RNA sequence: CAGCGGGGACGACCCCGCUUCCCGUUUUAUUUAUCGUGGACGACCACA
Numbered sequence: 001c002a003g004c005g006g007g008g009a010c011g012a013c014c015c016c017g018c019u020u021c022c023c024g025u026u027u028u029a030u031u032u033a034u035c036g037u038g039g040a041c042g043a044c045c046a047c048a
Stems, first nucleotide, its partner, number of pairs: 002019007036047004
Overview: Rfam assigns this 48-nucleotide RNA from Noviherbaspirillum saxi to the family "Guanidine-II riboswitch aptamer (mini-ykkC)". A search with the family's covariance model found it, with a score of 34 bits. NCBI's taxonomy places the organism under Bacteria, Pseudomonadota, Betaproteobacteria, Oxalobacteraceae, Noviherbaspirillum.